MIR8562 microRNA precursor family: a 241-nucleotide RNA sequence from Amborella trichopoda.

[Rfam]
RNA sequence: UUUUCUACAAAUCGGAAUGAUCUGAAAUUUGGAACAUGUGUUCAUAAAAAAUAGGCGAAUCUACAAAAAAUAUCAAAACAUUAUUUUACAUGAAAACAAUUGACCAAACGCCCCUGAAAAGUUUCGGGGGUAUUUUGGUCAAUUUUAUUUUCAUGAAUUAUUUUUUUUAUAUUUUUAUUAGGUGCGCCUCACUAAGAUGCACACACGAUCCAAAUUUCAGUUCAUUCCGAUUUGUAAAAAA
Numbered sequence: 001u002u003u004u005c006u007a008c009a010a011a012u013c014g015g016a017a018u019g020a021u022c023u024g025a026a027a028u029u030u031g032g033a034a035c036a037u038g039u040g041u042u043c044a045u046a047a048a049a050a051a052u053a054g055g056c057g058a059a060u061c062u063a064c065a066a067a068a069a070a071u072a073u074c075a076a077a078a079c080a081u082u083a084u085u086u087u088a089c090a091u092g093a094a095a096a097c098a099a100u101u102g103a104c105c106a107a108a109c110g111c112c113c114c115u116g117a118a119a120a121g122u123u124u125c126g127g128g129g130g131u132a133u134u135u136u137g138g139u140c141a142a143u144u145u146u147a148u149u150u151u152c153a154u155g156a157a158u159u160a161u162u163u164u165u166u167u168u169a170u171a172u173u174u175u176u177a178u179u180a181g182g183u184g185c186g187c188c189u190c191a192c193u194a195a196g197a198u199g200c201a202c203a204c205a206c207g208a209u210c211c212a213a214a215u216u217u218c219a220g221u222u223c224a225u226u227c228c229g230a231u232u233u234g235u236a237a238a239a240a241a
Base pairs, nucleotide, nucleotide: 001241002240003239004238006236007235008234009233010232011231012230013229014228015227016226017225018224019223020222022220023219024218025217026216027215028214029213030212031211032210033209037205038204039203040202041201043199044198045197061181062180063179066176067175068174069173070172071171072170073169075167076166077165078164080162096146098144099143100142101141102140103139104138105137106136107135108133110131111130112129113128116123117122

Description
Taxonomically the source falls in Amborella (Eukaryota, Streptophyta, Spermatophyta, Amborellaceae). It scores 214 bits against the family's covariance model.